[Rfam]
RNA sequence: AUACCUCCUGUUAUAUGUAAUGACUUAUGUAUUUCAUAUGCGGAAUUAUGGAUCGUCAUCACCAUCUUUUAUUAAACGAAGAGUUAACUAUUCUUAAUAUUAAUAUGUUUUAUAUAGAGAUAAGCAAUUUUAUUGAAUAUUCAAUAUUUGCGGUUGUUAUUAUUUUUGUGGAAUGUAAACUUUUUAUCAAUACAGGCGAUAUUUAUGUUGGGAUUGUGAGGGUUGAUUCUAUUCUUAUAACAAGAAAUGUUGUAAUUGAUAGAUAUGUUAAAAAAUUAAUUGGAGGAGGGAAUGAUGCAUGUUGUGAAAUUUUUGCAACCAAUAGUACUGGGCAUCAUAGUGAAACAUGUUUGCAGCGCCAACGAUGGCAUAUAACUGUAUUUCGUCUGGAGAGUCAAGUGAGGACUAUGAAGCACAAUGCGAUAUCUUCUGGUUAUAUGGCGAAUUUGCUUACUGGGCAUGUUUUGGGCUGGUCGGCGUCAGCUAUUUCGGUAUACGAGAGAUGCAGAAUAUUUUAUUUGAAUAUCAACGACUUAAAUCAUAGUUGUUUUUUCUGUAGUGGCUAAAUACUUCAUAAUAGGGGCUCUUAAAUUCGUAUGUAUGAGAAAGAUUAGAAUCCACAUUUAUUAAUAUUAGAUGACCCUGGAGAGCUGGUUGUCUUAAUAAACGAUACGGGUCCUCGUUAGUGAAAAUAUCCUUAAGGAAGUAAACGCAUCGGGAGCGAUAGCGGUGAAUUAUUCGUGGUUUUAUCGAUUCGGCAUAGUGGCGAUAACUGAAUGUCGGAUCGGUACUGCGGGUGUUUAAACGCACCGUAAAUAAGAAGUAGUAUUAAGGCA
Numbered sequence: 001a002u003a004c005c006u007c008c009u010g011u012u013a014u015a016u017g018u019a020a021u022g023a024c025u026u027a028u029g030u031a032u033u034u035c036a037u038a039u040g041c042g043g044a045a046u047u048a049u050g051g052a053u054c055g056u057c058a059u060c061a062c063c064a065u066c067u068u069u070u071a072u073u074a075a076a077c078g079a080a081g082a083g084u085u086a087a088c089u090a091u092u093c094u095u096a097a098u099a100u101u102a103a104u105a106u107g108u109u110u111u112a113u114a115u116a117g118a119g120a121u122a123a124g125c126a127a128u129u130u131u132a133u134u135g136a137a138u139a140u141u142c143a144a145u146a147u148u149u150g151c152g153g154u155u156g157u158u159a160u161u162a163u164u165u166u167u168g169u170g171g172a173a174u175g176u177a178a179a180c181u182u183u184u185u186a187u188c189a190a191u192a193c194a195g196g197c198g199a200u201a202u203u204u205a206u207g208u209u210g211g212g213a214u215u216g217u218g219a220g221g222g223u224u225g226a227u228u229c230u231a232u233u234c235u236u237a238u239a240a241c242a243a244g245a246a247a248u249g250u251u252g253u254a255a256u257u258g259a260u261a262g263a264u265a266u267g268u269u270a271a272a273a274a275a276u277u278a279a280u281u282g283g284a285g286g287a288g289g290g291a292a293u294g295a296u297g298c299a300u301g302u303u304g305u306g307a308a309a310u311u312u313u314u315g316c317a318a319c320c321a322a323u324a325g326u327a328c329u330g331g332g333c334a335u336c337a338u339a340g341u342g343a344a345a346c347a348u349g350u351u352u353g354c355a356g357c358g359c360c361a362a363c364g365a366u367g368g369c370a371u372a373u374a375a376c377u378g379u380a381u382u383u384c385g386u387c388u389g390g391a392g393a394g395u396c397a398a399g400u401g402a403g404g405a406c407u408a409u410g411a412a413g414c415a416c417a418a419u420g421c422g423a424u425a426u427c428u429u430c431u432g433g434u435u436a437u438a439u440g441g442c443g444a445a446u447u448u449g450c451u452u453a454c455u456g457g458g459c460a461u462g463u464u465u466u467g468g469g470c471u472g473g474u475c476g477g478c479g480u481c482a483g484c485u486a487u488u489u490c491g492g493u494a495u496a497c498g499a500g501a502g503a504u505g506c507a508g509a510a511u512a513u514u515u516u517a518u519u520u521g522a523a524u525a526u527c528a529a530c531g532a533c534u535u536a537a538a539u540c541a542u543a544g545u546u547g548u549u550u551u552u553u554c555u556g557u558a559g560u561g562g563c564u565a566a567a568u569a570c571u572u573c574a575u576a577a578u579a580g581g582g583g584c585u586c587u588u589a590a591a592u593u594c595g596u597a598u599g600u601a602u603g604a605g606a607a608a609g610a611u612u613a614g615a616a617u618c619c620a621c622a623u624u625u626a627u628u629a630a631u632a633u634u635a636g637a638u639g640a641c642c643c644u645g646g647a648g649a650g651c652u653g654g655u656u657g658u659c660u661u662a663a664u665a666a667a668c669g670a671u672a673c674g675g676g677u678c679c680u681c682g683u684u685a686g687u688g689a690a691a692a693u694a695u696c697c698u699u700a701a702g703g704a705a706g707u708a709a710a711c712g713c714a715u716c717g718g719g720a721g722c723g724a725u726a727g728c729g730g731u732g733a734a735u736u737a738u739u740c741g742u743g744g745u746u747u748u749a750u751c752g753a754u755u756c757g758g759c760a761u762a763g764u765g766g767c768g769a770u771a772a773c774u775g776a777a778u779g780u781c782g783g784a785u786c787g788g789u790a791c792u793g794c795g796g797g798u799g800u801u802u803a804a805a806c807g808c809a810c811c812g813u814a815a816a817u818a819a820g821a822a823g824u825a826g827u828a829u830u831a832a833g834g835c836a
Base pairs, nucleotide, nucleotide: 007834008833009832010256011255012254013253014252015251018061020059021058022057023056024055026052028050029049031047033045034044035043063249064248065247067245068244069243070242079095080094081093082092083091084090097238098237099236102233103232104231105230107228109124110123111122112121113120141226142225143224144223145222147179148178149177150176151175152174154171155170156169159166191218192217193216194215195214197210198209199208200207201206257831258830259829260828261827263824264823266821268819269818270817286794288792289791290740291739292738293737294736295735340354341353342352343351357732358731359730360729364716365715366714367713369440370439371438372437373436374435375434376433378426379425380424381423382422384420385419388417389416392414395411396410397409399407446710447709448708449707450706451705452704455701457699460695461694462693463692464691465690466689468687469478470477471476524685525684527682552650553649554648555647557645558644559643561641563636564635565634566633571630572629574627575626576625577624585616587614588613589612590611600605652669653668655666656665657664721728722727750788751787752786753785754784755783756782757781758780759779760778761777762774763773764772796811797810798809799808800807